The record is an 81-nucleotide RNA sequence from Bucco capensis, which matches "Small nucleolar RNA SNORD111" in Rfam. On this family, see Galardi et al., Mol Cell Biol 2002: "Purified box C/D snoRNPs are able to reproduce site-specific 2'-O-methylation of target RNA in vitro". Its family is annotated with nucleolus and RNA processing in the Gene Ontology. NCBI's taxonomy places the organism under Eukaryota, Sarcopterygii, Amniota, Piciformes, Bucco. It scores 60 bits against the family's covariance model. The family's consensus secondary structure was predicted with RNAalifold. It is annotated as a C/D-box small nucleolar RNA.
[Rfam]
RNA sequence: UAGCCUGAAGUGAUGAGCUUGAUUCAUGUCUCUUCUCUGAGAUACUCUGCUGGAGAUACUCCAAAGACUCUGAUCAGGCAA
Dot-bracket structure: (.(((.......................................................................))).)